Bacterial large subunit ribosomal RNA: a 363-nucleotide part of an RNA from Collinsella tanakaei. The organism belongs to Collinsella tanakaei, within Bacteria. The family's consensus secondary structure is taken from published work.
[Rfam]
RNA sequence: CGGGUCAACCAUGGUUAAGGAACUCGGCACAAUGGCCCCGUAACUUCGGGAGAAGGGGUGCCCCCGCGUACGUGAACCGGCUCGCCCGGGGAGCGGAGGGGGGCCGCAGUGAAGAGGCCCAAGCGACUGUUUACCAAAAACACAGGACUCUGCAUAAGCCGCGAGGCGACGUAUAGGGUCUGACGCCUGCCCGGUGCCGGAAGGUCACGCGGAGGUGUUAGCGCGAGCGAAGCACCGAAGCCAAGCCCCGGUAAACGGCGGCCGUAACUAUAACGGUCCUAAGGUAGCGAAAUUCCUUGUCGGGUAAGUUCCGACCUGCACGAAAGGCGCAACGACUUGGGCGCUGUCUCAACCAUGGACCCG
Numbered sequence: 001c002g003g004g005u006c007a008a009c010c011a012u013g014g015u016u017a018a019g020g021a022a023c024u025c026g027g028c029a030c031a032a033u034g035g036c037c038c039c040g041u042a043a044c045u046u047c048g049g050g051a052g053a054a055g056g057g058g059u060g061c062c063c064c065c066g067c068g069u070a071c072g073u074g075a076a077c078c079g080g081c082u083c084g085c086c087c088g089g090g091g092a093g094c095g096g097a098g099g100g101g102g103g104c105c106g107c108a109g110u111g112a113a114g115a116g117g118c119c120c121a122a123g124c125g126a127c128u129g130u131u132u133a134c135c136a137a138a139a140a141c142a143c144a145g146g147a148c149u150c151u152g153c154a155u156a157a158g159c160c161g162c163g164a165g166g167c168g169a170c171g172u173a174u175a176g177g178g179u180c181u182g183a184c185g186c187c188u189g190c191c192c193g194g195u196g197c198c199g200g201a202a203g204g205u206c207a208c209g210c211g212g213a214g215g216u217g218u219u220a221g222c223g224c225g226a227g228c229g230a231a232g233c234a235c236c237g238a239a240g241c242c243a244a245g246c247c248c249c250g251g252u253a254a255a256c257g258g259c260g261g262c263c264g265u266a267a268c269u270a271u272a273a274c275g276g277u278c279c280u281a282a283g284g285u286a287g288c289g290a291a292a293u294u295c296c297u298u299g300u301c302g303g304g305u306a307a308g309u310u311c312c313g314a315c316c317u318g319c320a321c322g323a324a325a326g327g328c329g330c331a332a333c334g335a336c337u338u339g340g341g342c343g344c345u346g347u348c349u350c351a352a353c354c355a356u357g358g359a360c361c362c363g
Base pairs, nucleotide, nucleotide: 001363002362003361004360009358010357011356012355013354014353015352016351018349019348020347035059036058037057038056039055044049060104061103062102063101064100065099078096080094081093082092083091105109117342118341119340120339121338122337123336124334125333128142129141130140145181146180147179148178149177150176151175152174153171158167159166160165184329185328186327187326189259190258191257194256195255196252197251198250199249200248203247204246205245209241210240214236215235216234217233218232221228222227260278261277262276263275264274265273279283289316299315300314301313302312303311304310